[Rfam]
RNA: Bacterial RNase P class A
RNA sequence: UGAGUCGGCAGGGCGACCGCGUCGGCGGGUGCUACCCGCCGCCGAGGAAAGUCCGGACUCCACAGGGCAGGGUGGUUGUUAACGGCAACCCGGGGCGACCCGCGGGACAGUGCCACAGAAAACAGACCGCCCGGGGCGCGCGAGCGCGCCGGGUAAGGGUGAAACGGUGGUGUAAGAGACCACCAGCACCCCGGGUGACCGGGGUGGCUAGGUAAACCCCACCCGGAGCAAGGCCAAGAGGGCGGCGAGACCUGGUCGCGCCGCCUGCGCAGGCGUUCGAGGGCUGCCCGCCCGAUGCCUGCGGGUAGGCUGCUUGAGCCUGCCGGCGACGGCAGGCCUAGAUGGAUGGUCGCCCACCGCGGCGCAGCGCGCCGCGGAGACAGGAUCCGGCUUACAUGCCGGCUCAUCCG
Dot-bracket structure: ((((((((((((((((((.((.((((((.......)))))).))....[[[.[[[[[((((...[[[[.((((((((((.....)))))(((((....)))).)((...(((((............((((((((.((((....)))).))))))..)).......((((((.......)))))).(((((((((....)))))))).)..)))..)))))))))))))...((((......((((...................................((((.]]]])))).....)))).....))))......((((((((....))))))))..........)))))))...............................]]]]]]]].).))))))))))....